Rfam assigns this 94-nucleotide RNA from Staphylococcus aureus to the family "ctRNA". Rfam describes the family as follows. Rolling circle replication plasmids contain a number of mechanisms to maintain a low copy number. One of these methods is to transcribe a small RNA called ctRNA (for counter-transcribed RNA) than is transcribed on the opposite strand to RepB the replication initiation protein. ctRNA binds to the mRNA of repB and causes translational inhibition. Rfam's curators put it in the seed alignment. It is annotated as an antisense RNA. For this family Rfam cites "pT181 plasmid replication is regulated by a countertranscript-driven transcriptional attenuator" (Novick et al., Cell, 1989). Rfam links the family to the GO terms mRNA binding and plasmid copy number maintenance.
RNA sequence: AUACAAGAUAUAAAAAAACAACUUAGUGUUUUUUCUAGGUAAGUCGCUAUCACAAACUUUGGCGAGGGAGUGAGCGACUUCUUUUUAUUUUGUU
Numbered sequence: 001a002u003a004c005a006a007g008a009u010a011u012a013a014a015a016a017a018a019c020a021a022c023u024u025a026g027u028g029u030u031u032u033u034u035c036u037a038g039g040u041a042a043g044u045c046g047c048u049a050u051c052a053c054a055a056a057c058u059u060u061g062g063c064g065a066g067g068g069a070g071u072g073a074g075c076g077a078c079u080u081c082u083u084u085u086u087a088u089u090u091u092g093u094u
Stems, first nucleotide, its partner, number of pairs: 006036003014033007043078005050073004